[Rfam]
Overview:
Rfam assigns this 201-nucleotide RNA from Actinospica acidithermotolerans to the family "c-di-AMP riboswitch aptamer (ydaO/yuaA leader)".

RNA sequence: CGGCCGCACCCGCCGAGUCCCCGCGAGGGGAGCCGGGGACCCACCACGCCGCGUCUUCGCGGAGGAUCCCCGGGGUGAAUCGGUCCCCUGGGUGCACACCGUGAUCGAAGCAUGACUCCGUGUGCAGAAAGGACCGUAGGGCGAACCUCACCUUCCGCCCGAACCCGUCAGCUAACCCGGUAGGCGGCCGAAGGAGAGGCU
Numbered sequence: 001c002g003g004c005c006g007c008a009c010c011c012g013c014c015g016a017g018u019c020c021c022c023g024c025g026a027g028g029g030g031a032g033c034c035g036g037g038g039a040c041c042c043a044c045c046a047c048g049c050c051g052c053g054u055c056u057u058c059g060c061g062g063a064g065g066a067u068c069c070c071c072g073g074g075g076u077g078a079a080u081c082g083g084u085c086c087c088c089u090g091g092g093u094g095c096a097c098a099c100c101g102u103g104a105u106c107g108a109a110g111c112a113u114g115a116c117u118c119c120g121u122g123u124g125c126a127g128a129a130a131g132g133a134c135c136g137u138a139g140g141g142c143g144a145a146c147c148u149c150a151c152c153u154u155c156c157g158c159c160c161g162a163a164c165c166c167g168u169c170a171g172c173u174a175a176c177c178c179g180g181u182a183g184g185c186g187g188c189c190g191a192a193g194g195a196g197a198g199g200c201u
Base pairs, nucleotide, nucleotide: 011186012185013184014183018031019030020029021028022027032181033180034179035178036177037176042072073166074165075164081136082135083134084133085132086131139160140159141158142157